RNA: skipping-rope RNA
RNA sequence: AUUUGAGGUUGGAAAUGGCUCCCGACACUCCCUUGUAUGAGGACGGAACGGGCAGCCGUCGCCCUAGUUGGAGAUGCGUGAGUGCUGACACGCCGCAAGGGAACCUGAGAUGCAGGAUACGCCGCCCUGCCAAAU
Dot-bracket structure: (((((..(((((...[[[[..))))).(((((((((..........................................................))))))))....)....(((((....]]]].))))))))))
Numbered sequence: 001a002u003u004u005g006a007g008g009u010u011g012g013a014a015a016u017g018g019c020u021c022c023c024g025a026c027a028c029u030c031c032c033u034u035g036u037a038u039g040a041g042g043a044c045g046g047a048a049c050g051g052g053c054a055g056c057c058g059u060c061g062c063c064c065u066a067g068u069u070g071g072a073g074a075u076g077c078g079u080g081a082g083u084g085c086u087g088a089c090a091c092g093c094c095g096c097a098a099g100g101g102a103a104c105c106u107g108a109g110a111u112g113c114a115g116g117a118u119a120c121g122c123c124g125c126c127c128u129g130c131c132a133a134a135u
Stems, first nucleotide, its partner, number of pairs: 001135005008026005016124004028107001029102008112130005